[Rfam]
Record summary
The family of this 146-nucleotide RNA from Pseudomonas benzenivorans is "Pseudomonas sRNA P14". The family's consensus secondary structure was predicted with WAR.
RNA sequence: CUGUAUAUUUUUUAUACAAAGCCAUGCAACUUGCAGGAGCCGGCUUCGACAAUAUGAAAAAAAGCGGCUGUGCUUGCCUCGUCUCCGUUUACUUACUAAAAGUUAUGGGUAGUAUGUACGCCGGCUAAUUUCCUACCGUUUGGAAA
Numbered sequence: 001c002u003g004u005a006u007a008u009u010u011u012u013u014a015u016a017c018a019a020a021g022c023c024a025u026g027c028a029a030c031u032u033g034c035a036g037g038a039g040c041c042g043g044c045u046u047c048g049a050c051a052a053u054a055u056g057a058a059a060a061a062a063a064g065c066g067g068c069u070g071u072g073c074u075u076g077c078c079u080c081g082u083c084u085c086c087g088u089u090u091a092c093u094u095a096c097u098a099a100a101a102g103u104u105a106u107g108g109g110u111a112g113u114a115u116g117u118a119c120g121c122c123g124g125c126u127a128a129u130u131u132c133c134u135a136c137c138g139u140u141u142g143g144a145a146a
Stems, first nucleotide, its partner, number of pairs: 033077002037075004042069004047064001081125003087121002090118003094114005101106001129146005
Lineage of the source: Bacteria > Pseudomonadota > Gammaproteobacteria > Pseudomonadales > Pseudomonas.